[Rfam]
RNA: small nucleolar RNA snoR134
RNA sequence: CUGCACGGUGCUAACCCCGGGCUUGUCGGAUUACUACCCUUGAAGGAGGAAGCCCCAAUGCCUGUGCCAGAUCCAGCACGCCAUUCAGUGUUGCAGGCCAUGACAAAUCUUGUGAGUGGUCUGUGUCAAAGCAAUGGAUACAGAU
Numbered sequence: 001c002u003g004c005a006c007g008g009u010g011c012u013a014a015c016c017c018c019g020g021g022c023u024u025g026u027c028g029g030a031u032u033a034c035u036a037c038c039c040u041u042g043a044a045g046g047a048g049g050a051a052g053c054c055c056c057a058a059u060g061c062c063u064g065u066g067c068c069a070g071a072u073c074c075a076g077c078a079c080g081c082c083a084u085u086c087a088g089u090g091u092u093g094c095a096g097g098c099c100a101u102g103a104c105a106a107a108u109c110u111u112g113u114g115a116g117u118g119g120u121c122u123g124u125g126u127c128a129a130a131g132c133a134a135u136g137g138a139u140a141c142a143g144a145u
Base pairs, nucleotide, nucleotide: 003067004066005065006064007063008062010061011060019055020054021053022052023051024049026046027045081137082136083135084134085133089128090127092125093124094123095122096121097120098119099118100117